Description:
Rfam assigns this 303-nucleotide sequence from Glycine soja to the family "Plant signal recognition particle RNA". It scores 237 bits against the family's covariance model. Clan: SRP clan. Taxonomically the source falls in Glycine subgen. Soja (Eukaryota, Pentapetalae, Papilionoideae, Glycine). A reference for the family is Wild et al. (2002), "Towards the structure of the mammalian signal recognition particle", Curr Opin Struct Biol.
RNA sequence: GCCGAGCUGUGUAGCGUCAGCUUGUGACCCAAGUGGGGGCAUGAAGGUGGUGGGACAAGACUCUGGCUUAGCCAGGUUGGGUUGGUGGCUGCACCAUGCUGGCCUGCCCGCUCCAAGUUGAGAGUUGAAUCAGGGGUUCUGAGCGAAAGCACAGGGCUCUUGGUUCCUAGACGAGGGGGCACCGCGUGAGGCUGGCUUCACAGAGCAGCGAUCACCCCUGGCUCUUGACAGUGGAGGGAUUACAGGCUGCUGCUCUUCCAGCUCAUAUAGCCUGAUGAGCCUAGCUCCUGAACCAUCACUUUU
Numbered sequence: 001g002c003c004g005a006g007c008u009g010u011g012u013a014g015c016g017u018c019a020g021c022u023u024g025u026g027a028c029c030c031a032a033g034u035g036g037g038g039g040c041a042u043g044a045a046g047g048u049g050g051u052g053g054g055a056c057a058a059g060a061c062u063c064u065g066g067c068u069u070a071g072c073c074a075g076g077u078u079g080g081g082u083u084g085g086u087g088g089c090u091g092c093a094c095c096a097u098g099c100u101g102g103c104c105u106g107c108c109c110g111c112u113c114c115a116a117g118u119u120g121a122g123a124g125u126u127g128a129a130u131c132a133g134g135g136g137u138u139c140u141g142a143g144c145g146a147a148a149g150c151a152c153a154g155g156g157c158u159c160u161u162g163g164u165u166c167c168u169a170g171a172c173g174a175g176g177g178g179g180c181a182c183c184g185c186g187u188g189a190g191g192c193u194g195g196c197u198u199c200a201c202a203g204a205g206c207a208g209c210g211a212u213c214a215c216c217c218c219u220g221g222c223u224c225u226u227g228a229c230a231g232u233g234g235a236g237g238g239a240u241u242a243c244a245g246g247c248u249g250c251u252g253c254u255c256u257u258c259c260a261g262c263u264c265a266u267a268u269a270g271c272c273u274g275a276u277g278a279g280c281c282u283a284g285c286u287c288c289u290g291a292a293c294c295a296u297c298a299c300u301u302u303u
Stems, first nucleotide, its partner, number of pairs: 001040003004023006028037003043303011056290002059287002062284001065281003069278001071276001073274006079264007087256001091253001100249007108238002111236005117229009127166015143150002174219005185210003192203003